RNA: U2 spliceosomal RNA
Organism: Ixodes scapularis
RNA sequence: AUCGCUUCUCGGCCUAUCUGGCUUUGAUCGUAUGUGUAGUAUCUGUUCUUAUCAGCUUAAUAUCUGAUAGGGGCCCUAUAUGGGUCCUCGAUAUUAACUUUAUUUUUGCAACCAGGUGGGGUACUCCGGGCUUGCCCGGAACCUGCCAGGGUCGGCCCUGUAUUGCACUAGAGCAGGGAUCGGCCCAGUUCCU
Numbered sequence: 001a002u003c004g005c006u007u008c009u010c011g012g013c014c015u016a017u018c019u020g021g022c023u024u025u026g027a028u029c030g031u032a033u034g035u036g037u038a039g040u041a042u043c044u045g046u047u048c049u050u051a052u053c054a055g056c057u058u059a060a061u062a063u064c065u066g067a068u069a070g071g072g073g074c075c076c077u078a079u080a081u082g083g084g085u086c087c088u089c090g091a092u093a094u095u096a097a098c099u100u101u102a103u104u105u106u107u108g109c110a111a112c113c114a115g116g117u118g119g120g121g122u123a124c125u126c127c128g129g130g131c132u133u134g135c136c137c138g139g140a141a142c143c144u145g146c147c148a149g150g151g152u153c154g155g156c157c158c159u160g161u162a163u164u165g166c167a168c169u170a171g172a173g174c175a176g177g178g179a180u181c182g183g184c185c186c187a188g189u190u191c192c193u
Stems, first nucleotide, its partner, number of pairs: 007027002011023004050069006071087006115147006122140001127138004149186006156178006